[Rfam]
Rfam assigns this 141-nucleotide sequence to the family "lysM-TM7 RNA". The base pairs follow the family's consensus structure, which is taken from published work.
RNA sequence: GCCUACCAGAAUUGUCGUACGAGUAUUGAUAAGCUUUUCAAAACAAUACUAAUUAAUGAGAUGGUCGACAUAUACUCCGUUCCGAUAAGGAAGAAAGACAUAGUAUGGUAGACGCCUUUGCAGUAAUGCGACAGGCAGGAG
Number, nucleotide and partner (000 for none) at each position: 001g000002c000003c111004u110005a109006c108007c107008a106009g000010a000011a000012u000013u100014g099015u098016c097017g000018u000019a000020c000021g077022a076023g075024u074025a073026u072027u000028g000029a000030u000031a000032a000033g000034c000035u000036u000037u000038u000039c000040a000041a000042a000043a000044c000045a000046a000047u000048a000049c000050u000051a000052a000053u000054u000055a000056a000057u000058g000059a000060g000061a000062u000063g000064g000065u000066c000067g000068a000069c000070a000071u000072a026073u025074a024075c023076u022077c021078c000079g000080u092081u091082c090083c089084g000085a000086u000087a000088a000089g083090g082091a081092a080093g000094a000095a000096a000097g016098a015099c014100a013101u000102a000103g000104u000105a000106u008107g007108g006109u005110a004111g003112a000113c000114g136115c135116c134117u000118u000119u131120g129121c128122a127123g000124u000125a000126a000127u122128g121129c120130g000131a119132c000133a000134g116135g115136c114137a000138g000139g000140a000141g000